[Rfam]
RNA: mir-166 microRNA precursor family
RNA sequence: GUUGAGAGGAAUGUUGUCUGGCUCGAGGUCAUGGAGGAGGAGAGUACUCAGAUGAGUGAAAGUUUCCAAUGGAAAUUUACCCUCUUAACACAAAAAAAAAAAAAAAAAAAAUUGAUUCUGGGACCAGGCUUCAUUUCCCCCAUC
Dot-bracket structure: (.((.(.((((((..((((((..(.(((........................................................................................))).)..))))))..)))))).).)).)